Potassium channel RNA editing signal: a 115-nucleotide sequence from Scleropages formosus. On this family, see Bhalla et al., Nat Struct Mol Biol 2004: "Control of human potassium channel inactivation by editing of a small mRNA hairpin". The base pairs follow the family's consensus structure, which is taken from published work. Rfam's curators write: This family represents a group of sequences related to the human potassium channel Kv1.1 hairpin element which directs the efficient modification of an adenosine to inosine by an adenosine deaminase acting on RNA (ADAR). The ADAR modification causes an isoleucine/valine recoding event which lies in the ion-conducting pore of the potassium channel. It is thought that this editing event targets the process of fast inactivation and allows a more rapid recovery from inactivation at negative potentials.
RNA sequence: CUCCAGCUACGGGGAUAUGGUGCCCAAGACAAUUGCAGGGAAGAUCUUCGGCUCCAUCUGCUCACUAAGCGGGGUAUUGGUAAUAGCCCUGCCCGUUCCAGUCAUCGUUUCCAAC
Numbered sequence: 001c002u003c004c005a006g007c008u009a010c011g012g013g014g015a016u017a018u019g020g021u022g023c024c025c026a027a028g029a030c031a032a033u034u035g036c037a038g039g040g041a042a043g044a045u046c047u048u049c050g051g052c053u054c055c056a057u058c059u060g061c062u063c064a065c066u067a068a069g070c071g072g073g074g075u076a077u078u079g080g081u082a083a084u085a086g087c088c089c090u091g092c093c094c095g096u097u098c099c100a101g102u103c104a105u106c107g108u109u110u111c112c113a114a115c
Stems, first nucleotide, its partner, number of pairs: 002114001006111001009108004014103003019098002022096002038078002041075001051063001

The family's RNA type in Rfam is cis-regulatory element.